The record is a 168-nucleotide sequence from Medicago truncatula, which matches "MIR2619 microRNA precursor family" in Rfam. Pairs were carried over by alignment from the consensus structure, which was predicted with RNAalifold.
[Rfam]
RNA sequence: AAACAAACCACUAUGUAUUAGAUCUUUGGCAAUUUUGGCCCCCAAGGCCAUUUUUGACUUAGUUUUCGCUGACGUGGCACCCACAUUCCUUAAGUGAGGUGCCACGUCAGCGAAAACUAAGUUAAAAGUAGUUUUGGGGGCCAGAGAUCCAAUACAUAGGGGCUGUUU
Numbered sequence: 001a002a003a004c005a006a007a008c009c010a011c012u013a014u015g016u017a018u019u020a021g022a023u024c025u026u027u028g029g030c031a032a033u034u035u036u037g038g039c040c041c042c043c044a045a046g047g048c049c050a051u052u053u054u055u056g057a058c059u060u061a062g063u064u065u066u067c068g069c070u071g072a073c074g075u076g077g078c079a080c081c082c083a084c085a086u087u088c089c090u091u092a093a094g095u096g097a098g099g100u101g102c103c104a105c106g107u108c109a110g111c112g113a114a115a116a117c118u119a120a121g122u123u124a125a126a127a128g129u130a131g132u133u134u135u136g137g138g139g140g141c142c143a144g145a146g147a148u149c150c151a152a153u154a155c156a157u158a159g160g161g162g163c164u165g166u167u168u
Stems, first nucleotide, its partner, number of pairs: 001168002004165002008162001012158008021149008038141008072107002075104007